The family of this 228-nucleotide part of an RNA from Coccidioides posadasii is "Eukaryotic large subunit ribosomal RNA". It is one of the family's seed sequences. NCBI's taxonomy places the organism under Eukaryota, saccharomyceta, Onygenales, Onygenaceae, Coccidioides posadasii.
[Rfam]
RNA sequence: UACUUGCAAUCAGACUUGAUUAUGAGAGCUCAGCAGAUAUGCAUGUUUGUGUACUUCUCUACACUCUAGGCUAGCAUCAGUUCUGGUAGUUGAUUAAAGAUCUCUGAAAUAUAUUGUUCUCUGAGAUAUCUUAUAGUCAGAGAUAUAAUAUAGCCAGCUGAGACUAAGAAAUAUGCUUCAGCACAGAUACUGGUAUAAUAAUUGUAAGUGAUCUGUCUUGAAAUAUGA
Numbered sequence: 001u002a003c004u005u006g007c008a009a010u011c012a013g014a015c016u017u018g019a020u021u022a023u024g025a026g027a028g029c030u031c032a033g034c035a036g037a038u039a040u041g042c043a044u045g046u047u048u049g050u051g052u053a054c055u056u057c058u059c060u061a062c063a064c065u066c067u068a069g070g071c072u073a074g075c076a077u078c079a080g081u082u083c084u085g086g087u088a089g090u091u092g093a094u095u096a097a098a099g100a101u102c103u104c105u106g107a108a109a110u111a112u113a114u115u116g117u118u119c120u121c122u123g124a125g126a127u128a129u130c131u132u133a134u135a136g137u138c139a140g141a142g143a144u145a146u147a148a149u150a151u152a153g154c155c156a157g158c159u160g161a162g163a164c165u166a167a168g169a170a171a172u173a174u175g176c177u178u179c180a181g182c183a184c185a186g187a188u189a190c191u192g193g194u195a196u197a198a199u200a201a202u203u204g205u206a207a208g209u210g211a212u213c214u215g216u217c218u219u220g221a222a223a224u225a226u227g228a
Base pairs, nucleotide, nucleotide: 001210002209003208004207005206006205007204008203009202010201012199017068022067024065072192073191074190076188077187078186214227215226216225